[Rfam]
RNA sequence: GGGGAGUUUUGAAUGUUUUGUAUUACUAAAGAAAAAUACAAAACAUUCAAAAUUCCCUGC
Numbered sequence: 001g002g003g004g005a006g007u008u009u010u011g012a013a014u015g016u017u018u019u020g021u022a023u024u025a026c027u028a029a030a031g032a033a034a035a036a037u038a039c040a041a042a043a044c045a046u047u048c049a050a051a052a053u054u055c056c057c058u059g060c
Stems, first nucleotide, its partner, number of pairs: 001058023
A member of the RNA family "mir-3047 microRNA precursor family" from Aphis gossypii, 60 nucleotides long. Its family is annotated with RISC complex and miRNA-mediated post-transcriptional gene silencing in the Gene Ontology. Rfam 15.1 lists 32 matches to the family in 5 species.